The family of this 124-nucleotide sequence from Enhydra lutris is "Small nucleolar RNA SNORD22". On this family, see Tycowski et al., Nature 1996: "A mammalian gene with introns instead of exons generating stable RNA products". The match comes from Rfam's covariance-model search (98 bits). Rfam classes the family as a C/D-box small nucleolar RNA. The base pairs follow the family's consensus structure, which was predicted with PFOLD.
[Rfam]
RNA sequence: UCCCAGUGAAGAAACAUCCAGGGACAUACUUCUUGUCCCAGUCCCAGAUUCUAUAAAGGUAAACUCUCUGGGGCUGAGUGGGGGAAGGAGGAAAGUUUAUUGAAGGAGGAACUGUCUGAGGGAG
Numbered sequence: 001u002c003c004c005a006g007u008g009a010a011g012a013a014a015c016a017u018c019c020a021g022g023g024a025c026a027u028a029c030u031u032c033u034u035g036u037c038c039c040a041g042u043c044c045c046a047g048a049u050u051c052u053a054u055a056a057a058g059g060u061a062a063a064c065u066c067u068c069u070g071g072g073g074c075u076g077a078g079u080g081g082g083g084g085a086a087g088g089a090g091g092a093a094a095g096u097u098u099a100u101u102g103a104a105g106g107a108g109g110a111a112c113u114g115u116c117u118g119a120g121g122g123a124g
Base pairs, nucleotide, nucleotide: 001123002122003121004120